The family of this 45-nucleotide RNA from Acanthopleuribacter pedis is "Guanidine-II riboswitch aptamer (mini-ykkC)".
Pairs were carried over by alignment from the consensus structure, which is taken from published work.
The match comes from Rfam's covariance-model search (42 bits).
Taxonomically the source falls in Acanthopleuribacter (Bacteria, Pseudomonadati, Acidobacteriota, Acanthopleuribacteraceae).
[Rfam]
Nucleotides: 045
Stems, first nucleotide, its partner, number of pairs: 003018006032045005
Number, partner (000 for none) and nucleotide at each position: 001000a002000a003018g004017u005016g006015a007014g008013g009000a010000c011000g012000a013008c014007c015006u016005u017004a018003c019000c020000g021000c022000u023000c024000a025000a026000u027000u028000c029000a030000a031000u032045u033044g034043g035042g036041g037000a038000c039000g040000g041036c042035c043034c044033c045032a